[Rfam]
RNA sequence: CCUUCGAUGUGUAACUGGCGAAACGUGGAUCACCACGAGGGAGCACAUCGUUAUACAGCCGUUCGCCUGGGCAAAGGUG
Numbered sequence: 001c002c003u004u005c006g007a008u009g010u011g012u013a014a015c016u017g018g019c020g021a022a023a024c025g026u027g028g029a030u031c032a033c034c035a036c037g038a039g040g041g042a043g044c045a046c047a048u049c050g051u052u053a054u055a056c057a058g059c060c061g062u063u064c065g066c067c068u069g070g071g072c073a074a075a076g077g078u079g
Base pairs, nucleotide, nucleotide: 005050006049007048008047009046010045011044012043015040016039017067018066019065020064021063025036026035027034028033058072059071060070
A member of the RNA family "ZMP/ZTP riboswitch aptamer (pfl RNA motif)" from Scopulibacillus darangshiensis, 79 nucleotides long.
It scores 61 bits against the family's covariance model.
Its family is annotated with one-carbon metabolic process and regulation of purine nucleotide biosynthetic process in the Gene Ontology.
Lineage of the source: Bacteria > Bacillati > Bacilli > Sporolactobacillaceae > Scopulibacillus.